[Rfam]
RNA sequence: CACACCAGAAAGGCCAUAAACCACAUCCGCUCCGUGUGGCAAGACCUUCUGGAGGACA
Numbered sequence: 001c002a003c004a005c006c007a008g009a010a011a012g013g014c015c016a017u018a019a020a021c022c023a024c025a026u027c028c029g030c031u032c033c034g035u036g037u038g039g040c041a042a043g044a045c046c047u048u049c050u051g052g053a054g055g056a057c058a
Stems, first nucleotide, its partner, number of pairs: 005052006012045001014043001021039006